[Rfam]
Shown here is an 84-nucleotide sequence from Magnetospira sp. QH-2, a member of the family "tRNA". Pairs were carried over by alignment from the consensus structure, which is taken from published work. By type it is a transfer RNA. Taxonomically the source falls in Magnetospira (Bacteria, Alphaproteobacteria, Rhodospirillales, Thalassospiraceae).
RNA sequence: GCGGGCGUGGUGAAAUUGGUAAACACAUCAGACUUAAAAUCUGACGGCGGAAACGCCCUGCCGGUUCAAGUCCGGCCGCCCGCA
Numbered sequence: 001g002c003g004g005g006c007g008u009g010g011u012g013a014a015a016u017u018g019g020u021a022a023a024c025a026c027a028u029c030a031g032a033c034u035u036a037a038a039a040u041c042u043g044a045c046g047g048c049g050g051a052a053a054c055g056c057c058c059u060g061c062c063g064g065u066u067c068a069a070g071u072c073c074g075g076c077c078g079c080c081c082g083c084a
Stems, first nucleotide, its partner, number of pairs: 001083007010026003028044005060076005
Dot-bracket structure: (((((((..(((...........))).(((((.......)))))...............(((((.......)))))))))))).